[Rfam]
RNA: mir-544 microRNA precursor family
Organism: Phocoena sinus
RNA sequence: AUCACCCAGGGAUCCUGAUAAAAUGCAGGCUCUGAUGCAGGGGAUCUCUCUGGGUUGGAGCCUGGGAUUCUGCAUUUCUAGCAAGUUCCCAGGUGAUGCUGA
Numbered sequence: 001a002u003c004a005c006c007c008a009g010g011g012a013u014c015c016u017g018a019u020a021a022a023a024u025g026c027a028g029g030c031u032c033u034g035a036u037g038c039a040g041g042g043g044a045u046c047u048c049u050c051u052g053g054g055u056u057g058g059a060g061c062c063u064g065g066g067a068u069u070c071u072g073c074a075u076u077u078c079u080a081g082c083a084a085g086u087u088c089c090c091a092g093g094u095g096a097u098g099c100u101g102a
Stems, first nucleotide, its partner, number of pairs: 003095003009089003014085001016083002019080002021077003025073005031067003